[Rfam]
RNA sequence: UCCGGCGCGCGUAGACGUCGCGCACAUACGCGCCGCGGUAUUAAGGUGAUGUGGACGCUGUUGUAGUGCUGCGGGCCUGGUCUGGGUGUGCUGUUGCGGGCCCGCCCGUUCAAGUUGCGUAGUGGACCGCCUGGGGCCUAUGCAAAACCUGGGCCUCACGGUCCAUAAUAUAGCAGGCACAUCGUGAGGCUGGCUUCACAGAGUAGCGACAGCUGCCCGCUUCCGACGGUGGAAGGAUAACGGGCCGCUGCACUCCUAGGCCACUUGGGCCUCGCAGUCUACUCUAGCGAACCAUCACUUUU
Number, nucleotide and partner (000 for none) at each position: 001u000002c000003c000004g000005g000006c000007g000008c000009g000010c000011g000012u000013a000014g000015a000016c000017g000018u000019c000020g000021c000022g000023c000024a000025c000026a000027u000028a000029c000030g000031c000032g000033c000034c000035g000036c000037g000038g000039u000040a000041u000042u000043a301044a300045g299046g298047u297048g296049a295050u294051g293052u000053g292054g000055a000056c289057g288058c287059u286060g285061u000062u000063g282064u281065a280066g279067u000068g000069c277070u276071g275072c274073g273074g272075g271076c000077c269078u268079g262080g261081u260082c259083u258084g257085g256086g255087u000088g253089u252090g251091c000092u250093g249094u000095u000096g000097c000098g000099g246100g245101c244102c243103c242104g241105c000106c236107c235108g000109u234110u233111c231112a230113a000114g227115u226116u225117g224118c000119g223120u000121a221122g220123u219124g164125g163126a162127c161128c160129g159130c000131c000132u158133g157134g156135g155136g154137c153138c152139u151140a150141u000142g148143c000144a000145a000146a000147a000148c142149c000150u140151g139152g138153g137154c136155c135156u134157c133158a132159c129160g128161g127162u126163c125164c124165a000166u000167a000168a000169u000170a000171u000172a000173g216174c215175a214176g213177g000178c000179a000180c000181a000182u209183c208184g207185u206186g000187a000188g000189g000190c201191u200192g199193g000194c000195u000196u000197c000198a000199c192200a191201g190202a000203g000204u000205a000206g185207c184208g183209a182210c000211a000212g000213c176214u175215g174216c173217c000218c000219g123220c122221u121222u000223c119224c117225g116226a115227c114228g000229g000230u112231g111232g000233a110234a109235g107236g106237a000238u000239a000240a000241c104242g103243g102244g101245c100246c099247g000248c000249u093250g092251c090252a089253c088254u000255c086256c085257u084258a083259g082260g081261c080262c079263a000264c000265u000266u000267g000268g078269g077270c000271c075272u074273c073274g072275c071276a070277g069278u000279c066280u065281a064282c063283u000284c000285u060286a059287g058288c057289g056290a000291a000292c053293c051294a050295u049296c048297a047298c046299u045300u044301u043302u000
Rfam assigns this 302-nucleotide RNA from Triticum aestivum to the family "Plant signal recognition particle RNA". Rfam classes the family as a non-coding RNA gene. The match comes from Rfam's covariance-model search (148 bits).